[Rfam]
RNA sequence: GGUCUGGUCGAGAAGCUGCUUCGUAGUAUAUAAACGGUUCAUCCACUAAGCUAUGGGGAAAGUCUCUGUGCAAAUAUCGCCGAAAGGGCGCCCGGGAAACCCGCCGAGGCCCAGAGCUCCUAUCUGUGCGUAGUACUUUAGGAGCCCUGAGUCGCUCCCGCCGUUUCAGCAUUAGAUAAUGCAGCUGAUGCCUAGCAUUUACAAGAUAGAGCUUAUCCGCGAACCAGAC
Numbered sequence: 001g002g003u004c005u006g007g008u009c010g011a012g013a014a015g016c017u018g019c020u021u022c023g024u025a026g027u028a029u030a031u032a033a034a035c036g037g038u039u040c041a042u043c044c045a046c047u048a049a050g051c052u053a054u055g056g057g058g059a060a061a062g063u064c065u066c067u068g069u070g071c072a073a074a075u076a077u078c079g080c081c082g083a084a085a086g087g088g089c090g091c092c093c094g095g096g097a098a099a100c101c102c103g104c105c106g107a108g109g110c111c112c113a114g115a116g117c118u119c120c121u122a123u124c125u126g127u128g129c130g131u132a133g134u135a136c137u138u139u140a141g142g143a144g145c146c147c148u149g150a151g152u153c154g155c156u157c158c159c160g161c162c163g164u165u166u167c168a169g170c171a172u173u174a175g176a177u178a179a180u181g182c183a184g185c186u187g188a189u190g191c192c193u194a195g196c197a198u199u200u201a202c203a204a205g206a207u208a209g210a211g212c213u214u215a216u217c218c219g220c221g222a223a224c225c226a227g228a229c
Stems, first nucleotide, its partner, number of pairs: 002229007009221002014186006021056007060214003064211004078090004091106001095102002108153003112149003116145006126136004188198004